[Rfam]
Rfam assigns this 81-nucleotide RNA from Clostridium estertheticum to the family "c-di-GMP-I riboswitch aptamer". Rfam describes the family as follows. GEMM was predicted in a large-scale screen for bacterial structured RNA regulatory elements. Taxonomically the source falls in Clostridium (Bacteria, Bacillati, Bacillota, Clostridiaceae). The base pairs follow the family's consensus structure, which is taken from published work.

RNA sequence: UACGGAAAAUAGCAAACUUAUUGAAAAGUAAGGACGCAAAGCCAUAGGGCCUUACGAGAGUAUGGUAGCCUAGCCACCAAA
Number, nucleotide and partner (000 for none) at each position: 001u000002a000003c000004g000005g000006a000007a000008a000009a000010u000011a000012g037013c036014a000015a000016a000017c032018u031019u030020a029021u028022u027023g000024a000025a000026a000027a022028g021029u020030a019031a018032g017033g000034a000035c000036g013037c012038a000039a000040a000041g074042c073043c000044a000045u000046a071047g070048g069049g066050c065051c064052u000053u062054a061055c060056g000057a000058g000059a000060g055061u054062a053063u000064g051065g050066u049067a000068g000069c048070c047071u046072a000073g042074c041075c000076a000077c000078c000079a000080a000081a000